[Rfam]
Actino-pnp RNA: a 65-nucleotide RNA sequence from Gordonia sihwensis.
Taxonomically the source falls in Gordonia sihwensis (Bacteria, Bacillati, Mycobacteriales, Gordoniaceae).

Nucleotides: 065
Base pairs, nucleotide, nucleotide: 003063004062005061006060007059009057010056011055012054013053017049018048019047021045022044023043024042025041026040027039028038029037
Number, partner (000 for none) and nucleotide at each position: 001000a002000u003063c004062g005061g006060u007059c008000c009057u010056c011055g012054g013053u014000a015000g016000u017049g018048g019047c020000c021045g022044c023043c024042g025041g026040a027039a028038u029037c030000c031000c032000c033000a034000a035000g036000c037029g038028a039027u040026u041025c042024c043023g044022g045021c046000c047019g048018c049017u050000u051000c052000g053013a054012u055011c056010g057009a058000a059007g060006g061005c062004c063003g064000u065000c